[Rfam]
Nucleotides: 113
Base pairs, nucleotide, nucleotide: 001078002077003076004075009038011037012036013035014034015033016032021030022029039065040064041063044061045060046059048056049055081102083100084099085098086097087096088095089094
Number, partner (000 for none) and nucleotide at each position: 001078g002077g003076u004075c005000u006000u007000g008000a009038g010000c011037g012036c013035c014034a015033g016032c017000g018000c019000g020000a021030a022029g023000c024000c025000c026000c027000g028000g029022c030021u031000c032016g033015c034014u035013g036012g037011c038009c039065g040064g041063c042000a043000a044061c045060c046059c047000u048056c049055c050000u051000c052000c053000g054000c055049g056048g057000u058000g059046g060045g061044g062000u063041g064040c065039c066000c067000c068000g069000g070000g071000a072000g073000a074000c075004g076003a077002c078001c079000u080000g081102g082000u083100c084099c085098g086097c087096g088095a089094c090000g091000a092000c093000c094089g095088u096087c097086g098085c099084g100083g101000u102081c103000a104000a105000g106000c107000g108000c109000g110000c111000a112000c113000a